[Rfam]
Rfam assigns this 72-nucleotide RNA sequence to the family "skipping-rope RNA". It is annotated as a small RNA.

RNA sequence: AGCAUUUGAGGAUAGAAAUGGCAGCUAUCACCCAUUGUUAGGAGAUACAGGAAGGUCAACCUGUCUUAUGCU
Numbered sequence: 001a002g003c004a005u006u007u008g009a010g011g012a013u014a015g016a017a018a019u020g021g022c023a024g025c026u027a028u029c030a031c032c033c034a035u036u037g038u039u040a041g042g043a044g045a046u047a048c049a050g051g052a053a054g055g056u057c058a059a060c061c062u063g064u065c066u067u068a069u070g071c072u
Stems, first nucleotide, its partner, number of pairs: 001072005008065001011029005019058004031042001047064005